[Rfam]
Small Cajal body specific RNA 23: a 122-nucleotide RNA sequence from Pipistrellus kuhlii. About the family: scaRNAs are a specific class of small nuclear RNAs which localise to the Cajal bodies and guide the modification of RNA polymerase II transcribed spliceosomal RNAs U1, U2, U4, U5 and U12. ACA11 belongs to the H/ACA box class of guide RNAs as it has the predicted hairpin-hinge-hairpin-tail structure,the conserved H/ACA-box motifs and is found associated with GAR1. H/ACA snRNAs are predicted to guide the modification of uridines to pseudouridines in substrate RNAs however, no target RNA has been identified for scaRNA ACA11. Taxonomically the source falls in Pipistrellus (Eukaryota, Eumetazoa, Mammalia, Vespertilionidae). The family's RNA type in Rfam is small Cajal body RNA. Rfam 15.1 lists 399 matches to the family in 374 species. The family's consensus secondary structure was predicted with RNAfold.

RNA sequence: AGGCUCUCAGGGCUGGUCCCAUCGACAUGGUCUUGAACUGCCCUUUGGGAGCGACAGCAAUGGGACUGGAUUGGGGGCUCCUGUCCGAGUGGACACAGGAGACUACGGUUGCCAGUGCAACA
Numbered sequence: 001a002g003g004c005u006c007u008c009a010g011g012g013c014u015g016g017u018c019c020c021a022u023c024g025a026c027a028u029g030g031u032c033u034u035g036a037a038c039u040g041c042c043c044u045u046u047g048g049g050a051g052c053g054a055c056a057g058c059a060a061u062g063g064g065a066c067u068g069g070a071u072u073g074g075g076g077g078c079u080c081c082u083g084u085c086c087g088a089g090u091g092g093a094c095a096c097a098g099g100a101g102a103c104u105a106c107g108g109u110u111g112c113c114a115g116u117g118c119a120a121c122a
Stems, first nucleotide, its partner, number of pairs: 003052006011042003016038001017036002023030001063118001065116005071108003076104002078101005083094004